[Rfam]
RNA sequence: GUGUGAAUCCCAGGGCGCUUCUCCUUUGGCACGGAGGCAUGCAUGUACUGAUGGUAGGAGUUGGCCAGGUGAAGAAGCUCCAGGCCGAUCAGUGCGUGCAGCUAGCCAGCCGCGUCGUGCGUGCCAAAGGAGAAUUGCCCUGCGAUUCACCU
Numbered sequence: 001g002u003g004u005g006a007a008u009c010c011c012a013g014g015g016c017g018c019u020u021c022u023c024c025u026u027u028g029g030c031a032c033g034g035a036g037g038c039a040u041g042c043a044u045g046u047a048c049u050g051a052u053g054g055u056a057g058g059a060g061u062u063g064g065c066c067a068g069g070u071g072a073a074g075a076a077g078c079u080c081c082a083g084g085c086c087g088a089u090c091a092g093u094g095c096g097u098g099c100a101g102c103u104a105g106c107c108a109g110c111c112g113c114g115u116c117g118u119g120c121g122u123g124c125c126a127a128a129g130g131a132g133a134a135u136u137g138c139c140c141u142g143c144g145a146u147u148c149a150c151c152u
Stems, first nucleotide, its partner, number of pairs: 005148005011142007019134001021132004027126007035118001
Dot-bracket structure: ....(((((.(((((((.(.((((..(((((((.(..................................................................................).)))))))..)))).).))))))).)))))....
This 152-nucleotide RNA sequence from Triticum urartu belongs to the Rfam family "mir-399 microRNA precursor family". A search with the family's covariance model found it, with a score of 64 bits. The organism belongs to Triticum, within Eukaryota.